[Rfam]
Annotation: Rfam assigns this 88-nucleotide sequence from Chthonomonas calidirosea to the family "c-di-GMP-I riboswitch aptamer". The organism belongs to Chthonomonas calidirosea, within Bacteria. The match comes from Rfam's covariance-model search (77 bits). The family's consensus secondary structure is taken from published work.
RNA sequence: ACGUAGAAAAGGCAAACCCAUAGAAAUGUGGGGGCGCAAAGCCAUGGGCCUGUAGGGGGUUGUCCCCCAUGGUUGCCAGGUUGCCGUC
Dot-bracket structure: ...........((...((((((....))))))...))..((((.((((((....((((.....))))...)))..)))))))......
Numbered sequence: 001a002c003g004u005a006g007a008a009a010a011g012g013c014a015a016a017c018c019c020a021u022a023g024a025a026a027u028g029u030g031g032g033g034g035c036g037c038a039a040a041g042c043c044a045u046g047g048g049c050c051u052g053u054a055g056g057g058g059g060u061u062g063u064c065c066c067c068c069a070u071g072g073u074u075g076c077c078a079g080g081u082u083g084c085c086g087u088c
Stems, first nucleotide, its partner, number of pairs: 012037002017032006040082004045078003048073003055067004